The family of this 150-nucleotide RNA sequence from Flaviramulus basaltis is "Flavo-1 RNA". The match comes from Rfam's covariance-model search (46 bits). The family's RNA type in Rfam is small RNA. The organism belongs to Flaviramulus, within Bacteria.
[Rfam]
RNA sequence: GAUGAGUUGCGGGAGCGAUAGAAACGGCAUCCUUUUUAUGCGUUGGAAGUUCUGUUGUUUGAGUUUAGUACAUACAUUAAACAGAUUGCUUCGUCGUUGCUCUUCUCCGCAAUGACGUAUAAAAAGAUAUAGUGGAUAGCGCGGUUUUUA
Numbered sequence: 001g002a003u004g005a006g007u008u009g010c011g012g013g014a015g016c017g018a019u020a021g022a023a024a025c026g027g028c029a030u031c032c033u034u035u036u037u038a039u040g041c042g043u044u045g046g047a048a049g050u051u052c053u054g055u056u057g058u059u060u061g062a063g064u065u066u067a068g069u070a071c072a073u074a075c076a077u078u079a080a081a082c083a084g085a086u087u088g089c090u091u092c093g094u095c096g097u098u099g100c101u102c103u104u105c106u107c108c109g110c111a112a113u114g115a116c117g118u119a120u121a122a123a124a125a126g127a128u129a130u131a132g133u134g135g136a137u138a139g140c141g142c143g144g145u146u147u148u149u150a
Base pairs, nucleotide, nucleotide: 015142016141017140019138020137024133025132029128030127031126035123036122037121038120039119040118041117042116043115044114045113